[Rfam]
RNA sequence: CGCUCAUCACGAGGGGUGGAGGGAUCGGCCCGGCGAAACCCCGGCAACCACCAGCCGCACGGCGCACGCGCCGCAGGCUGUGUAUGGUGCCAAUUCCGACAGCACGAGCUGGGAGAUGAGGU
Numbered sequence: 001c002g003c004u005c006a007u008c009a010c011g012a013g014g015g016g017u018g019g020a021g022g023g024a025u026c027g028g029c030c031c032g033g034c035g036a037a038a039c040c041c042c043g044g045c046a047a048c049c050a051c052c053a054g055c056c057g058c059a060c061g062g063c064g065c066a067c068g069c070g071c072c073g074c075a076g077g078c079u080g081u082g083u084a085u086g087g088u089g090c091c092a093a094u095u096c097c098g099a100c101a102g103c104a105c106g107a108g109c110u111g112g113g114a115g116a117u118g119a120g121g122u
Stems, first nucleotide, its partner, number of pairs: 003120006013042005021031003025099004043091004048087002050083002095114001100111004
RNA: SAM riboswitch aptamer (S box leader)